[Rfam]
RNA sequence: AGUGAAGAUAGAGGUGCGAUUAGACAUCAGUACUCAGCAGGAGGAAGGAAAGUUCCUAGAAUAGCUGAAGAAAGGGUUUUUCGCCGAAACAUAGAAUAGCUUUUCCUAUUCUGUUGUUGGUUCUGCAUUUAAUAGAUGUAGGAUUGUCAGAAUUUGAUAUUCUGGAGGGCUAUCUCACAU
Numbered sequence: 001a002g003u004g005a006a007g008a009u010a011g012a013g014g015u016g017c018g019a020u021u022a023g024a025c026a027u028c029a030g031u032a033c034u035c036a037g038c039a040g041g042a043g044g045a046a047g048g049a050a051a052g053u054u055c056c057u058a059g060a061a062u063a064g065c066u067g068a069a070g071a072a073a074g075g076g077u078u079u080u081u082c083g084c085c086g087a088a089a090c091a092u093a094g095a096a097u098a099g100c101u102u103u104u105c106c107u108a109u110u111c112u113g114u115u116g117u118u119g120g121u122u123c124u125g126c127a128u129u130u131a132a133u134a135g136a137u138g139u140a141g142g143a144u145u146g147u148c149a150g151a152a153u154u155u156g157a158u159a160u161u162c163u164g165g166a167g168g169g170c171u172a173u174c175u176c177a178c179a180u
Base pairs, nucleotide, nucleotide: 006175007174008173009172010171011170016084017083018082019081023078024077025076034068035067036066037065038064040062088118089117090116091115092113093112094111095110096109097108098107099106119145120144121143122142123141124140125139126138127137128136129135147165148164149163150162151161152160153159
Dot-bracket structure: .....((((((....((((...(((........(((((.(.....................).))))).......)))..))))...((((((((((((......)))))))).))))(((((((((((.....))))))))))).(((((((.....)))))))....)))))).....